[Rfam]
Shown here is a 99-nucleotide sequence from Paeniglutamicibacter cryotolerans, a member of the family "TPP riboswitch aptamer (THI element)". From the family's description: Vitamin B(1) in its active form thiamin pyrophosphate (TPP) is an essential coenzyme that is synthesised by coupling of pyrimidine and thiazole moieties in bacteria. It scores 64 bits against the family's covariance model.
RNA sequence: GGCAGUGACACGGGGUGUCCGGCCAGCGGCCGGACUGAGAUAAGACCCGUCGCACCUGAUCUAGUUAGCACUAGCGGAGGGAUGUCGCCCAUGGUUUCC
Numbered sequence: 001g002g003c004a005g006u007g008a009c010a011c012g013g014g015g016u017g018u019c020c021g022g023c024c025a026g027c028g029g030c031c032g033g034a035c036u037g038a039g040a041u042a043a044g045a046c047c048c049g050u051c052g053c054a055c056c057u058g059a060u061c062u063a064g065u066u067a068g069c070a071c072u073a074g075c076g077g078a079g080g081g082a083u084g085u086c087g088c089c090c091a092u093g094g095u096u097u098c099c
Stems, first nucleotide, its partner, number of pairs: 006087005011049004016043001017035007055080003061074004